[Rfam]
RNA: Human acetyl-coA cholesterol acyltransferase mRNA
Organism: Myotis lucifugus
RNA sequence: CGGCCGGGCUGGCGGUGUUGCCGGCCGUGGACACCCGGAGAGCUGCCCGGAGCUGACCUUCCUGCCGGCCGCGCUCCGACGGCCCCCGGUUCUGCCUUCCUUGCCGAGGUCCCCGCUGCCGGGCUCCGGCCCCAGGUAAUGCUCUU
Numbered sequence: 001c002g003g004c005c006g007g008g009c010u011g012g013c014g015g016u017g018u019u020g021c022c023g024g025c026c027g028u029g030g031a032c033a034c035c036c037g038g039a040g041a042g043c044u045g046c047c048c049g050g051a052g053c054u055g056a057c058c059u060u061c062c063u064g065c066c067g068g069c070c071g072c073g074c075u076c077c078g079a080c081g082g083c084c085c086c087c088g089g090u091u092c093u094g095c096c097u098u099c100c101u102u103g104c105c106g107a108g109g110u111c112c113c114c115g116c117u118g119c120c121g122g123g124c125u126c127c128g129g130c131c132c133c134a135g136g137u138a139a140u141g142c143u144c145u146u
Base pairs, nucleotide, nucleotide: 013017034089035088037086038085042083043082046078049075050074052072054071055070057068058067103130104129105128109126112123113122114121115120
Dot-bracket structure: ............(...)................((.((...((..(..((.(.((.((........)).))).))..)...)).)).)).............(((...(..((((....))))..).)))................